[Rfam]
RNA sequence: GGCCUCAUUGUAGAUGAGAAUGGGCACUGUUAAACAUGGUGUCCAAAAACUGUUAAUGUGGCUAAAUUGAGAUACAGGUUAUGCUUCCAUCACAGCAAAUGAAUUGCAGUGGUGACAAUGAGACCUGUAACAAUU
Numbered sequence: 001g002g003c004c005u006c007a008u009u010g011u012a013g014a015u016g017a018g019a020a021u022g023g024g025c026a027c028u029g030u031u032a033a034a035c036a037u038g039g040u041g042u043c044c045a046a047a048a049a050c051u052g053u054u055a056a057u058g059u060g061g062c063u064a065a066a067u068u069g070a071g072a073u074a075c076a077g078g079u080u081a082u083g084c085u086u087c088c089a090u091c092a093c094a095g096c097a098a099a100u101g102a103a104u105u106g107c108a109g110u111g112g113u114g115a116c117a118a119u120g121a122g123a124c125c126u127g128u129a130a131c132a133a134u135u
Stems, first nucleotide, its partner, number of pairs: 002062003006058003021045007074128005088114006

Shown here is a 135-nucleotide sequence from Oryctolagus cuniculus, a member of the family "Small nucleolar RNA SNORA1". The family's RNA type in Rfam is H/ACA-box small nucleolar RNA. Rfam's curators put it in the seed alignment. From the family's description: ACA1 is a member of the H/ACA class of snoRNA that guide the sites of modification of uridines to pseudouridines.